[Rfam]
RNA sequence: UCAUGUGGUGGUUUUCUUCCUGGCACAUUUGUUAAGUUUUCAAAUGGGCCUGACUCUGCCACAUAUAUUAUAUAGAAGCUGGGAAAGGCUUGAUGACAAAGAGAUCUCCCUCUCUGGCCUUUCUGCAUCAGAGAUUGGCUCCCACAUGU
Numbered sequence: 001u002c003a004u005g006u007g008g009u010g011g012u013u014u015u016c017u018u019c020c021u022g023g024c025a026c027a028u029u030u031g032u033u034a035a036g037u038u039u040u041c042a043a044a045u046g047g048g049c050c051u052g053a054c055u056c057u058g059c060c061a062c063a064u065a066u067a068u069u070a071u072a073u074a075g076a077a078g079c080u081g082g083g084a085a086a087g088g089c090u091u092g093a094u095g096a097c098a099a100a101g102a103g104a105u106c107u108c109c110c111u112c113u114c115u116g117g118c119c120u121u122u123c124u125g126c127a128u129c130a131g132a133g134a135u136u137g138g139c140u141c142c143c144a145c146a147u148g149u
Base pairs, nucleotide, nucleotide: 005062006061007060008059009058010057011056022050023049024048026046027045028044029043030042031041075142077140078139079138080137081090082089107134108133110131111130
Shown here is a 149-nucleotide RNA from Myotis lucifugus, a member of the family "Small nucleolar RNA SNORA12".
About the family: U108 belongs to the H/ACA family of snoRNAs.
The literature on the family includes a 2005 paper in Nucleic Acids Res by Gu et al., "A novel experimental approach for systematic identification of box H/ACA snoRNAs from eukaryotes".
It is one of the family's seed sequences.
The base pairs follow the family's consensus structure, which was predicted with RNAalifold.
Rfam links the family to the GO terms RNA processing and nucleolus.